[Rfam]
RNA: Salmonella enterica Typhi npcRNA 143
Organism: Salmonella enterica
Nucleotides: 144
Stems, first nucleotide, its partner, number of pairs: 001029006009022002037061001039059002042056001046052002062090010091141009101131001105124005111118002
Number, partner (000 for none) and nucleotide at each position: 001029a002028u003027u004026c005025u006024u007000a008000c009022u010021c011000a012000a013000a014000a015000a016000g017000a018000a019000a020000a021010g022009g023000a024006a025005g026004g027003a028002a029001u030000a031000c032000c033000g034000c035000a036000a037061g038000a039059a040058a041000c042056c043000a044000a045000a046052g047051a048000a049000a050000a051047u052046c053000a054000u055000g056042g057000a058040u059039u060000c061037c062090a063089u064088u065087a066086a067085a068084c069083u070082u071081c072000a073000u074000u075000a076000u077000u078000g079000a080000a081071g082070a083069g084068g085067u086066u087065u088064a089063a090062u091141a092140a093139a094138g095137c096136u097135g098134g099133u100000u101131c102000u103000a104000u105124a106123g107122g108121u109120g110000c111118g112117c113000g114000c115000c116000u117112g118111c119000u120109c121108g122107u123106c124105u125000u126000u127000c128000a129000u130000u131101g132000u133099g134098c135097c136096a137095g138094c139093u140092u141091u142000u143000c144000u